[Rfam]
RNA sequence: AUACUUACCUGGACGGGGUCUUUGGGAGAUCAUAAAGGUCCAAGGCCUAGGUUAGUGGCUGCUCAUUGCACUUUGGCGGAGUGCUCACCUAACAUCUCCCCCAAGUGGGAGAGUGUACGUCAUAAUUUGUUCCUAAGGGGGUACGCGUUCGCGCGGCCCCUG
Numbered sequence: 001a002u003a004c005u006u007a008c009c010u011g012g013a014c015g016g017g018g019u020c021u022u023u024g025g026g027a028g029a030u031c032a033u034a035a036a037g038g039u040c041c042a043a044g045g046c047c048u049a050g051g052u053u054a055g056u057g058g059c060u061g062c063u064c065a066u067u068g069c070a071c072u073u074u075g076g077c078g079g080a081g082u083g084c085u086c087a088c089c090u091a092a093c094a095u096c097u098c099c100c101c102c103a104a105g106u107g108g109g110a111g112a113g114u115g116u117a118c119g120u121c122a123u124a125a126u127u128u129g130u131u132c133c134u135a136a137g138g139g140g141g142u143a144c145g146c147g148u149u150c151g152c153g154c155g156g157c158c159c160c161u162g
Base pairs, nucleotide, nucleotide: 012121013120014119015118016048017047018046019045020044021043023042024041025040026039049090050089051088052087056083057082060080062078063076064075092116093115094114095112096111097110099108100107137161138160139159140158141157144155145154146153147152